[Rfam]
RNA sequence: UUCUUAUCAAGAGAGGUGGAGGGACUGGCCCUUUGAAGCCUCGGCAACAGACUUAACUGAACUGUGCCAAUUCCAGCAAGCGUAAUGCUUGAAAGAUAAGAA
Numbered sequence: 001u002u003c004u005u006a007u008c009a010a011g012a013g014a015g016g017u018g019g020a021g022g023g024a025c026u027g028g029c030c031c032u033u034u035g036a037a038g039c040c041u042c043g044g045c046a047a048c049a050g051a052c053u054u055a056a057c058u059g060a061a062c063u064g065u066g067c068c069a070a071u072u073c074c075a076g077c078a079a080g081c082g083u084a085a086u087g088c089u090u091g092a093a094a095g096a097u098a099a100g101a102a
Stems, first nucleotide, its partner, number of pairs: 001102008013042005021031003025076004043068004048064002072094001077091006
SAM riboswitch aptamer (S box leader): a 102-nucleotide RNA sequence from Cytobacillus horneckiae. On this family, see Grundy and Henkin, Mol Microbiol 1998: "The S box regulon: a new global transcription termination control system for methionine and cysteine biosynthesis genes in gram-positive bacteria". It scores 94 bits against the family's covariance model.